[Rfam]
RNA: Small nucleolar RNA SNORA71
RNA sequence: CCCUGCAUUCGAAAGUGAUCUUGGCCUCGGCCGUGGCCCGGUCAUCGAUAGUGCAGGGAGAGGAACGCUGAGAGCUUUCCCGUGUUUGGGGGGGGCGUCACCCCCCUCCCAAACCCUGUUGCUGUCGGACA
Dot-bracket structure: (((((((((.....((((((..((((........)))).))))))....))))))))).........((((.(((........((((((((((..........))))).)))))......))).))))...